[Rfam]
RNA sequence: CUUUAACUUUAACAUGGUAGUACUUUCUGUGACUUUUGAAAUAGUAAGUGCUUCCAUGUUUUAGUAGAAG
Numbered sequence: 001c002u003u004u005a006a007c008u009u010u011a012a013c014a015u016g017g018u019a020g021u022a023c024u025u026u027c028u029g030u031g032a033c034u035u036u037u038g039a040a041a042u043a044g045u046a047a048g049u050g051c052u053u054c055c056a057u058g059u060u061u062u063a064g065u066a067g068a069a070g
Base pairs, nucleotide, nucleotide: 001070002069003068006065007064008063011060012059013058014057015056016055017054019052020051021050022049023048024047025046027044028043
Dot-bracket structure: (((..(((..(((((((.(((((((.((..............)).))))))).)))))))..)))..)))